Rfam assigns this 86-nucleotide sequence from Zhenpiania hominis to the family "ZMP/ZTP riboswitch aptamer (pfl RNA motif)". It scores 55 bits against the family's covariance model. For this family Rfam cites "Co-crystal structure of the Fusobacterium ulcerans ZTP riboswitch using an X-ray free-electron laser" (Jones et al., Acta Crystallogr F Struct Biol Commun, 2019). The base pairs follow the family's consensus structure, which is taken from published work. Lineage of the source: Bacteria > Bacillati > Bacillota > Peptostreptococcales > Zhenpiania.
[Rfam]
RNA sequence: AAAAAGUCAUAUGACUGACGGAAGUGGAAGAAACCACAUGGAGUAUGAUGAGUAGAAAACAAAAGCCGACCGUCUGGGCUGAGAAA
Numbered sequence: 001a002a003a004a005a006g007u008c009a010u011a012u013g014a015c016u017g018a019c020g021g022a023a024g025u026g027g028a029a030g031a032a033a034c035c036a037c038a039u040g041g042a043g044u045a046u047g048a049u050g051a052g053u054a055g056a057a058a059a060c061a062a063a064a065g066c067c068g069a070c071c072g073u074c075u076g077g078g079c080u081g082a083g084a085a086a
Stems, first nucleotide, its partner, number of pairs: 006049007015040001017074005024037004064080004